[Rfam]
RNA sequence: CGGCGAUCGGGUCUCUCGAGUGUGGAGAGCAUGGGAGUUGGCGGACACAUGAGUGUUCCACCAUGAACCUCGUCCAGGCCACUCUCAUCUCAUCCGCCCGCUCGAGAGGUCGCGAUCGUC
Numbered sequence: 001c002g003g004c005g006a007u008c009g010g011g012u013c014u015c016u017c018g019a020g021u022g023u024g025g026a027g028a029g030c031a032u033g034g035g036a037g038u039u040g041g042c043g044g045a046c047a048c049a050u051g052a053g054u055g056u057u058c059c060a061c062c063a064u065g066a067a068c069c070u071c072g073u074c075c076a077g078g079c080c081a082c083u084c085u086c087a088u089c090u091c092a093u094c095c096g097c098c099c100g101c102u103c104g105a106g107a108g109g110u111c112g113c114g115a116u117c118g119u120c
Stems, first nucleotide, its partner, number of pairs: 002120008011111001012109010022097005027091003031088008040079001042077001043075004051071003055068004
Shown here is a 120-nucleotide RNA from Drosophila pseudoobscura, a member of the family "mir-2576 microRNA precursor family".